[Rfam]
RNA sequence: UACUCUCGAGCGGUAAGUCCGCUACAGGUUGUUCUAGGUGUUCCCCUCCAUCGGUGGGCCAAAGCCUAGACGCCAAAAACCUGUAGGGCACGCUCGUUUU
Numbered sequence: 001u002a003c004u005c006u007c008g009a010g011c012g013g014u015a016a017g018u019c020c021g022c023u024a025c026a027g028g029u030u031g032u033u034c035u036a037g038g039u040g041u042u043c044c045c046c047u048c049c050a051u052c053g054g055u056g057g058g059c060c061a062a063a064g065c066c067u068a069g070a071c072g073c074c075a076a077a078a079a080c081c082u083g084u085a086g087g088g089c090a091c092g093c094u095c096g097u098u099u100u
Stems, first nucleotide, its partner, number of pairs: 002099001005096001010093002025083006032077001033070007044058003048054002
RNA: DUF3800-V RNA